[Rfam]
RNA sequence: UUGUGAGUCGGUGGCGUUUUGAUAGCGCCGACGCACUCCGCCGGGCUCGGGAUGGGCGAGGCGGAGUUCCAUCUGAAAAAAGGAA
Numbered sequence: 001u002u003g004u005g006a007g008u009c010g011g012u013g014g015c016g017u018u019u020u021g022a023u024a025g026c027g028c029c030g031a032c033g034c035a036c037u038c039c040g041c042c043g044g045g046c047u048c049g050g051g052a053u054g055g056g057c058g059a060g061g062c063g064g065a066g067u068u069c070c071a072u073c074u075g076a077a078a079a080a081a082g083g084a085a
Stems, first nucleotide, its partner, number of pairs: 007032007017025002033069001035067008045057004